RNA sequence: GUAUUACCAUGAGUUCCGUGGAGCACUUCAUGAGGCACUGUUUCAAACGCCACCGUGAAGUGUUUGGGAGAACUCUUGGUGCCAC
Numbered sequence: 001g002u003a004u005u006a007c008c009a010u011g012a013g014u015u016c017c018g019u020g021g022a023g024c025a026c027u028u029c030a031u032g033a034g035g036c037a038c039u040g041u042u043u044c045a046a047a048c049g050c051c052a053c054c055g056u057g058a059a060g061u062g063u064u065u066g067g068g069a070g071a072a073c074u075c076u077u078g079g080u081g082c083c084a085c
Stems, first nucleotide, its partner, number of pairs: 005081005011075006019067001021065012035051001